[Rfam]
RNA sequence: CAUUGUCGCCCUUCCAUGGGCGUUUCCUCCCUAGACUUGGGCCGUGUCUUCGUGACACGGCCUUUUUUUCAUCCAGU
Numbered sequence: 001c002a003u004u005g006u007c008g009c010c011c012u013u014c015c016a017u018g019g020g021c022g023u024u025u026c027c028u029c030c031c032u033a034g035a036c037u038u039g040g041g042c043c044g045u046g047u048c049u050u051c052g053u054g055a056c057a058c059g060g061c062c063u064u065u066u067u068u069u070c071a072u073c074c075a076g077u
Stems, first nucleotide, its partner, number of pairs: 008021004040062009
RNA: Makes More Granules Regulator RNA (mmgR)